RNA sequence: CGGGAUUAGUUCCCGUUGGAGUGUGACCCUGCAGACAGGGUUGAACCGUGAA
Number, nucleotide and partner (000 for none) at each position: 001c015002g014003g013004g012005a011006u000007u000008a000009g000010u000011u005012c004013c003014c002015g001016u000017u048018g047019g046020a000021g000022u000023g000024u000025g042026a041027c040028c039029c038030u000031g000032c000033a000034g000035a000036c000037a000038g029039g028040g027041u026042u025043g000044a000045a000046c019047c018048g017049u000050g000051a000052a000
RNA: eL15-Euryarchaeota ribosomal protein leader